The record is an 80-nucleotide sequence from [Clostridium] leptum, which matches "S10-Clostridia ribosomal protein leader" in Rfam. Pairs were carried over by alignment from the consensus structure, which is taken from published work. The match comes from Rfam's covariance-model search (57 bits). For this family Rfam cites "Discovery of 20 novel ribosomal leader candidates in bacteria and archaea" (Eckert and Weinberg, BMC Microbiol, 2020). By type it is a cis-regulatory leader.
[Rfam]
RNA sequence: GAUAUGCGAUGAAGCGGGAGGUUGCGGCGGUUUCCGCCGGUUUUUCCGUGGAGUAUGUCCGAUUUUAAACCGGGCGACAG
Numbered sequence: 001g002a003u004a005u006g007c008g009a010u011g012a013a014g015c016g017g018g019a020g021g022u023u024g025c026g027g028c029g030g031u032u033u034c035c036g037c038c039g040g041u042u043u044u045u046c047c048g049u050g051g052a053g054u055a056u057g058u059c060c061g062a063u064u065u066u067a068a069a070c071c072g073g074g075c076g077a078c079a080g
Stems, first nucleotide, its partner, number of pairs: 014049003018046004025039005056079004063074003